Burkholderia sRNA Bp1_Cand871_SIPHT: a 228-nucleotide RNA from Paraburkholderia acidiphila. Rfam links the family to the GO term bacterial biofilm matrix. NCBI's taxonomy places the organism under Bacteria, Pseudomonadota, Burkholderiales, Burkholderiaceae, Paraburkholderia. On this family, see Sass et al., Sci Rep 2017: "Identification of small RNAs abundant in Burkholderia cenocepacia biofilms reveal putative regulators with a potential role in carbon and iron metabolism".
Nucleotides: 228
Base pairs, nucleotide, nucleotide: 005168006167007166020126021125022124023123024122025121026120027119028118029117030116031115033113034112035111036110037109038108039076040075041074045071046070047069051064052063053062054061079093080092081091082090083089096107097106098105099104130150131149172197173196175194176193177192178191179190180189181188203221204220205219206218207217208216209215210214
Number, partner (000 for none) and nucleotide at each position: 001000u002000c003000g004000c005168c006167c007166a008000c009000a010000a011000u012000g013000g014000g015000c016000u017000u018000c019000a020126a021125c022124g023123g024122u025121u026120u027119c028118a029117a030116c031115a032000c033113g034112g035111a036110u037109g038108u039076g040075g041074c042000u043000c044000g045071g046070u047069g048000c049000c050000a051064g052063u053062g054061u055000g056000a057000g058000c059000g060000g061054a062053c063052a064051c065000a066000a067000a068000a069047c070046a071045c072000c073000u074041g075040c076039c077000g078000g079093u080092c081091g082090g083089c084000a085000c086000u087000a088000c089083g090082c091081c092080g093079a094000a095000g096107c097106c098105c099104u100000c101000u102000c103000g104099a105098g106097g107096g108038g109037c110036a111035u112034c113033c114000u115031u116030g117029u118028u119027g120026g121025a122024g123023c124022c125021g126020u127000g128000a129000c130150c131149g132000g133000c134000g135000u136000c137000g138000a139000a140000g141000a142000c143000g144000u145000u146000u147000c148000a149131u150130g151000a152000c153000c154000c155000g156000g157000c158000u159000c160000c161000u162000c163000c164000u165000u166007u167006g168005g169000u170000c171000u172197c173196c174000u175194c176193g177192c178191g179190c180189u181188a182000a183000c184000c185000c186000c187000g188181u189180a190179g191178c192177g193176u194175g195000u196173g197172g198000u199000u200000u201000u202000u203221a204220g205219c206218g207217g208216g209215c210214u211000c212000c213000a214210g215209g216208c217207c218206c219205g220204c221203u222000u223000u224000u225000u226000u227000u228000u